[Rfam]
RNA sequence: UGCCUCUCCUCUCCUCCUGGCCGGAUGGGACAGGAGGCACGAAUGAGCCAUCUUUCCAAUGCCUUUCUGUCUUUUCUGGUCCAGGUGUGGCAAAGGGAAGC
Numbered sequence: 001u002g003c004c005u006c007u008c009c010u011c012u013c014c015u016c017c018u019g020g021c022c023g024g025a026u027g028g029g030a031c032a033g034g035a036g037g038c039a040c041g042a043a044u045g046a047g048c049c050a051u052c053u054u055u056c057c058a059a060u061g062c063c064u065u066u067c068u069g070u071c072u073u074u075u076c077u078g079g080u081c082c083a084g085g086u087g088u089g090g091c092a093a094a095g096g097g098a099a100g101c
Base pairs, nucleotide, nucleotide: 004097005096006095007094008090009089011087013085014084015083019081020080021079022078023077024076025075027073028072029071030070031069032068033067034066035065036063037062038061039060041056042055043054045052046051
Background: Rfam assigns this 101-nucleotide RNA sequence from Pongo pygmaeus to the family "mir-4743 microRNA precursor family". Gene Ontology terms of the family: miRNA-mediated post-transcriptional gene silencing and RISC complex.